[Rfam]
RNA sequence: ACUUACACCUCACUAACAGCCUGUGCCAGUUUUCCCAUCCACCUCUCGGGGUGUGUUUGGUUGAGAGCUGGCAGUUCGUUCGUGACCAUAGAGCCGUCUUGAUUAGUGGGCGUCAAUUUCUGAACGACAGGUUGCAGAGCAAGUCGGUACGUUGCUGGAAGCCUGAGUUCGCCGCAAGGUUUGAGCUCGGUGAAAGGUGCGUACCAGGCAGACUGAUUCCUGUUCCCUUUUGCUAGACCGUCGGUCUAUGACGCUUGGGACAAACCCAGUUGGCUACAUAC
Numbered sequence: 001a002c003u004u005a006c007a008c009c010u011c012a013c014u015a016a017c018a019g020c021c022u023g024u025g026c027c028a029g030u031u032u033u034c035c036c037a038u039c040c041a042c043c044u045c046u047c048g049g050g051g052u053g054u055g056u057u058u059g060g061u062u063g064a065g066a067g068c069u070g071g072c073a074g075u076u077c078g079u080u081c082g083u084g085a086c087c088a089u090a091g092a093g094c095c096g097u098c099u100u101g102a103u104u105a106g107u108g109g110g111c112g113u114c115a116a117u118u119u120c121u122g123a124a125c126g127a128c129a130g131g132u133u134g135c136a137g138a139g140c141a142a143g144u145c146g147g148u149a150c151g152u153u154g155c156u157g158g159a160a161g162c163c164u165g166a167g168u169u170c171g172c173c174g175c176a177a178g179g180u181u182u183g184a185g186c187u188c189g190g191u192g193a194a195a196g197g198u199g200c201g202u203a204c205c206a207g208g209c210a211g212a213c214u215g216a217u218u219c220c221u222g223u224u225c226c227c228u229u230u231u232g233c234u235a236g237a238c239c240g241u242c243g244g245u246c247u248a249u250g251a252c253g254c255u256u257g258g259g260a261c262a263a264a265c266c267c268a269g270u271u272g273g274c275u276a277c278a279u280a281c
Stems, first nucleotide, its partner, number of pairs: 017134008025072005031066004035060003039055001040053002042050001044049001081126003086122001089115001091113001093111003149202004161191003165188006172179002208274002211271005224260004232254002236246004
A. fumigatus sRNA Afu_309: a 281-nucleotide RNA from Curvularia kusanoi. The family's consensus secondary structure was predicted with WAR. On this family, see Jochl et al., Nucleic Acids Res 2008: "Small ncRNA transcriptome analysis from Aspergillus fumigatus suggests a novel mechanism for regulation of protein synthesis". NCBI's taxonomy places the organism under Eukaryota, Opisthokonta, Fungi, Pleosporomycetidae, Curvularia.